[Rfam]
RNA sequence: AGACUUGGUCGUAGAGCCACGACCAACUGGGGUAAUCUCCCCUCAAAAAAAGAACGCUCACUGAGA
Numbered sequence: 001a002g003a004c005u006u007g008g009u010c011g012u013a014g015a016g017c018c019a020c021g022a023c024c025a026a027c028u029g030g031g032g033u034a035a036u037c038u039c040c041c042c043u044c045a046a047a048a049a050a051a052g053a054a055c056g057c058u059c060a061c062u063g064a065g066a
Base pairs, nucleotide, nucleotide: 006025007024008023009022010021011020014059015058016057017056
The family of this 66-nucleotide RNA is "6A RNA".